[Rfam]
RNA sequence: GUGGGCUAUGGUGACAUGACGCCAAAAACUUAUUUAGGAAUGUUUGUUGGAUCAAUUUGCGCUCUAACUGGUGUCCUCACUAUUGCACUUCCAGUUCCAGUCAUUGUUGGCAAC
Numbered sequence: 001g002u003g004g005g006c007u008a009u010g011g012u013g014a015c016a017u018g019a020c021g022c023c024a025a026a027a028a029c030u031u032a033u034u035u036a037g038g039a040a041u042g043u044u045u046g047u048u049g050g051a052u053c054a055a056u057u058u059g060c061g062c063u064c065u066a067a068c069u070g071g072u073g074u075c076c077u078c079a080c081u082a083u084u085g086c087a088c089u090u091c092c093a094g095u096u097c098c099a100g101u102c103a104u105u106g107u108u109g110g111c112a113a114c
Stems, first nucleotide, its partner, number of pairs: 001114002004111001008107004013102003018097002021095002037077002040074001049063002
The family of this 114-nucleotide RNA from Helobdella robusta is "Potassium channel RNA editing signal". By type it is a cis-regulatory element. NCBI's taxonomy places the organism under Eukaryota, Metazoa, Lophotrochozoa, Clitellata, Helobdella. It scores 90 bits against the family's covariance model.